This 133-nucleotide sequence from Jaculus jaculus belongs to the Rfam family "Small nucleolar RNA SNORA29".
About the family: ACA29 is a member of the H/ACA class of snoRNA that guide the sites of modification of uridines to pseudouridines.
The organism belongs to Jaculus, within Eukaryota.
The literature on the family includes a 2001 paper in EMBO J by Huttenhofer et al., "RNomics: an experimental approach that identifies 201 candidates for novel, small, non-messenger RNAs in mouse".
Clan: SNORA20 clan.
Rfam classes the family as an H/ACA-box small nucleolar RNA.
RNA sequence: UUCCCCAUUUGACUGCCACAUUUUCUCCUAACAGAAUUUAGUGGCUACGCUUGUAGGAUAGGUUAAAGGUGCCAUGAUAUGAACUGAAGAGGGAGGGUUUUUCAAUGUCCAUUAACUAGCUGAACAGAAAUAU
Numbered sequence: 001u002u003c004c005c006c007a008u009u010u011g012a013c014u015g016c017c018a019c020a021u022u023u024u025c026u027c028c029u030a031a032c033a034g035a036a037u038u039u040a041g042u043g044g045c046u047a048c049g050c051u052u053g054u055a056g057g058a059u060a061g062g063u064u065a066a067a068g069g070u071g072c073c074a075u076g077a078u079a080u081g082a083a084c085u086g087a088a089g090a091g092g093g094a095g096g097g098u099u100u101u102u103c104a105a106u107g108u109c110c111a112u113u114a115a116c117u118a119g120c121u122g123a124a125c126a127g128a129a130a131u132a133u
Base pairs, nucleotide, nucleotide: 004057005056007054016044017043018042019041071120072119074117095110096109097108
Dot-bracket structure: ...((.(........((((.....................)))).........).)).............((.(....................(((..........)))......).)).............